[Rfam]
RNA: antisense RNA of dnaA mRNA
Organism: Affinibrenneria salicis
RNA sequence: UUUGGCGUUGGCUUUACGGGCAAUAAUACCGUUGCCCACCGCAUGCAGCAGGUGAGUUUUACCCAGCCCGGUGCCGCCGUA
Number, nucleotide and partner (000 for none) at each position: 001u000002u000003u000004g000005g042006c041007g040008u000009u038010g037011g036012c000013u034014u000015u000016a032017c031018g030019g000020g029021c000022a000023a000024u000025a000026a000027u000028a000029c020030c018031g017032u016033u000034g013035c000036c011037c010038a009039c000040c007041g006042c005043a000044u000045g000046c000047a000048g000049c000050a000051g078052g077053u076054g075055a000056g074057u073058u000059u000060u000061a072062c071063c070064c000065a000066g000067c000068c000069c000070g063071g062072u061073g057074c056075c054076g053077c052078c051079g000080u000081a000